[Rfam]
RNA sequence: UGUUGUCUGGAGCCCUUUUUCUGUUGUGCUACUGUGAAAUCAGGUGAGCAGUGCAAUUUUAAAAGGGCAUCGGCCAACA
Numbered sequence: 001u002g003u004u005g006u007c008u009g010g011a012g013c014c015c016u017u018u019u020u021c022u023g024u025u026g027u028g029c030u031a032c033u034g035u036g037a038a039a040u041c042a043g044g045u046g047a048g049c050a051g052u053g054c055a056a057u058u059u060u061a062a063a064a065g066g067g068c069a070u071c072g073g074c075c076a077a078c079a
Stems, first nucleotide, its partner, number of pairs: 001079003005074001007073004012068008023057008
RNA: mir-130 microRNA precursor family
Organism: Oryzias javanicus